[Rfam]
RNA sequence: UCAGAUCGAUAUCGUUUCUUACGGUAAAGAGAAGCCGGCAGUACUGGGUCACGACGAAGCGGCUUACGCGAAGAACCGUCGUGCCGUACUGGUUUACUAAUUUCUUGUGUAGACGAGUAGCGAAUGAGCAGUAACUUCAGACGUCAUGUGAUG
Numbered sequence: 001u002c003a004g005a006u007c008g009a010u011a012u013c014g015u016u017u018c019u020u021a022c023g024g025u026a027a028a029g030a031g032a033a034g035c036c037g038g039c040a041g042u043a044c045u046g047g048g049u050c051a052c053g054a055c056g057a058a059g060c061g062g063c064u065u066a067c068g069c070g071a072a073g074a075a076c077c078g079u080c081g082u083g084c085c086g087u088a089c090u091g092g093u094u095u096a097c098u099a100a101u102u103u104c105u106u107g108u109g110u111a112g113a114c115g116a117g118u119a120g121c122g123a124a125u126g127a128g129c130a131g132u133a134a135c136u137u138c139a140g141a142c143g144u145c146a147u148g149u150g151a152u153g
Base pairs, nucleotide, nucleotide: 001047002046003045004044007041014035015034016033017032018031019030020029054152057149059147062144063143065141068138075132076131078129079127080126081125082124084122087119088118089117090116
Rfam assigns this 153-nucleotide RNA from Edwardsiella hoshinae to the family "CpoB/ybgF ICR thermometer".
Lineage of the source: Bacteria > Pseudomonadota > Gammaproteobacteria > Hafniaceae > Edwardsiella.
The pairing is the family consensus, mapped onto this sequence.
Rfam describes the family as follows. Imprinting control region from upstream of cpoB/ybgF (tol/pal system protein).